[Rfam]
RNA: Nuclear RNase P
Organism: Moelleriella libera
RNA sequence: UCCUUGAAGAUAUUGAAAAGGGGAGUUCUCAAAUACUUCACAUUGCAUGUGAGAAAUUCGGAGAAGCCUCUACACCUUUUUAUAUCGCUGUCGGUUUCUCUAUUUUCCCUCUCGUUGGGUUUCCUUUGGGGGGCCCGAGGAGGGGAAAAGAAAGGGACAGGACGGAUUCUGCCUGUGAGGGCCCGGCGUCAAUUGACGUCCGCAGAUUGGCAUCAGAAAUAUCAGGAGUCCCUUCGCUGCCCAAAAACUCUUCCUUUAGGGGAUUUGUUUCUGGAAGGUGAAAGGGUGUCUCCUCUGGGAAGCCACUGCGUAGAUUGUGUGAUGACACUUGAGUGCGAUGCGUGGCGUGGCCUGUUGGUCAUAAUUCGAUUCCGAUUAUUCUUCUUAGAGGA
Numbered sequence: 001u002c003c004u005u006g007a008a009g010a011u012a013u014u015g016a017a018a019a020g021g022g023g024a025g026u027u028c029u030c031a032a033a034u035a036c037u038u039c040a041c042a043u044u045g046c047a048u049g050u051g052a053g054a055a056a057u058u059c060g061g062a063g064a065a066g067c068c069u070c071u072a073c074a075c076c077u078u079u080u081u082a083u084a085u086c087g088c089u090g091u092c093g094g095u096u097u098c099u100c101u102a103u104u105u106u107c108c109c110u111c112u113c114g115u116u117g118g119g120u121u122u123c124c125u126u127u128g129g130g131g132g133g134c135c136c137g138a139g140g141a142g143g144g145g146a147a148a149a150g151a152a153a154g155g156g157a158c159a160g161g162a163c164g165g166a167u168u169c170u171g172c173c174u175g176u177g178a179g180g181g182c183c184c185g186g187c188g189u190c191a192a193u194u195g196a197c198g199u200c201c202g203c204a205g206a207u208u209g210g211c212a213u214c215a216g217a218a219a220u221a222u223c224a225g226g227a228g229u230c231c232c233u234u235c236g237c238u239g240c241c242c243a244a245a246a247a248c249u250c251u252u253c254c255u256u257u258a259g260g261g262g263a264u265u266u267g268u269u270u271c272u273g274g275a276a277g278g279u280g281a282a283a284g285g286g287u288g289u290c291u292c293c294u295c296u297g298g299g300a301a302g303c304c305a306c307u308g309c310g311u312a313g314a315u316u317g318u319g320u321g322a323u324g325a326c327a328c329u330u331g332a333g334u335g336c337g338a339u340g341c342g343u344g345g346c347g348u349g350g351c352c353u354g355u356u357g358g359u360c361a362u363a364a365u366u367c368g369a370u371u372c373c374g375a376u377u378a379u380u381c382u383u384c385u386u387a388g389a390g391g392a
Stems, first nucleotide, its partner, number of pairs: 001392004006383002011345001014342002022039005027033001059374005070313004171182004185200006206307001208305004224294005347362006